[Rfam]
RNA: Small nucleolar RNA SNORD115
Organism: Cebus imitator
RNA sequence: AGAUCGAUGAUGAGAUCUUAUAUUUCUCCGAAGAGAGGUGAUGACUUAAAAAUCAUGCUCAAUAGGAUUACGCUGAGGCCC
Numbered sequence: 001a002g003a004u005c006g007a008u009g010a011u012g013a014g015a016u017c018u019u020a021u022a023u024u025u026c027u028c029c030g031a032a033g034a035g036a037g038g039u040g041a042u043g044a045c046u047u048a049a050a051a052a053u054c055a056u057g058c059u060c061a062a063u064a065g066g067a068u069u070a071c072g073c074u075g076a077g078g079c080c081c
Stems, first nucleotide, its partner, number of pairs: 002080001004078001005075002008072002